[Rfam]
RNA sequence: CCAGUCAGCCGGACAGUCGCGCGCCUUCGGGCUCGAGGAAAGUCCGGGCUCCUCCUGGCAGGGUGGUGGGUAACGCCCACCCGGAGCGAUCCGCGGGACAGUGCCACAGAGAGCAGACCACCAGCGCAAGCUGGCCAGGGUGAAAGGGUGGUGUAAGAGACCACCGCGCAGCCGGUGACGGAUGCGGCACGGCAAACCCCACUCGGAGCAAGGUCAGACAGGAAGCGCAUCGGCCGCCAGGGUCGGCUUCCGGGUAGACCGCUGGAGGCCGUCGGCAACGGCGGUCCUAGACAGAUGACUGUCGAUCACAGAACCCGGCUUACAGGCUGACUGGUCCC
Numbered sequence: 001c002c003a004g005u006c007a008g009c010c011g012g013a014c015a016g017u018c019g020c021g022c023g024c025c026u027u028c029g030g031g032c033u034c035g036a037g038g039a040a041a042g043u044c045c046g047g048g049c050u051c052c053u054c055c056u057g058g059c060a061g062g063g064u065g066g067u068g069g070g071u072a073a074c075g076c077c078c079a080c081c082c083g084g085a086g087c088g089a090u091c092c093g094c095g096g097g098a099c100a101g102u103g104c105c106a107c108a109g110a111g112a113g114c115a116g117a118c119c120a121c122c123a124g125c126g127c128a129a130g131c132u133g134g135c136c137a138g139g140g141u142g143a144a145a146g147g148g149u150g151g152u153g154u155a156a157g158a159g160a161c162c163a164c165c166g167c168g169c170a171g172c173c174g175g176u177g178a179c180g181g182a183u184g185c186g187g188c189a190c191g192g193c194a195a196a197c198c199c200c201a202c203u204c205g206g207a208g209c210a211a212g213g214u215c216a217g218a219c220a221g222g223a224a225g226c227g228c229a230u231c232g233g234c235c236g237c238c239a240g241g242g243u244c245g246g247c248u249u250c251c252g253g254g255u256a257g258a259c260c261g262c263u264g265g266a267g268g269c270c271g272u273c274g275g276c277a278a279c280g281g282c283g284g285u286c287c288u289a290g291a292c293a294g295a296u297g298a299c300u301g302u303c304g305a306u307c308a309c310a311g312a313a314c315c316c317g318g319c320u321u322a323c324a325g326g327c328u329g330a331c332u333g334g335u336c337c338c
Stems, first nucleotide, its partner, number of pairs: 001334010011323001012303007020035002023032003040321003044318005049208004056240001058238001061204005066080005081095001082093004096199002101197002103193003118139002121134005147165006166188001167186004172181003212260004221251006231245005267286008

The family of this 338-nucleotide sequence from Helcobacillus massiliensis is "Bacterial RNase P class A". By type it is a ribozyme. Rfam describes the family as follows. Ribonuclease P (RNase P) is a ubiquitous endoribonuclease, found in archaea, bacteria and eukarya as well as chloroplasts and mitochondria. The match comes from Rfam's covariance-model search (296 bits). The base pairs follow the family's consensus structure, which is taken from published work. Taxonomically the source falls in Helcobacillus (Bacteria, Bacillati, Micrococcales, Dermabacteraceae).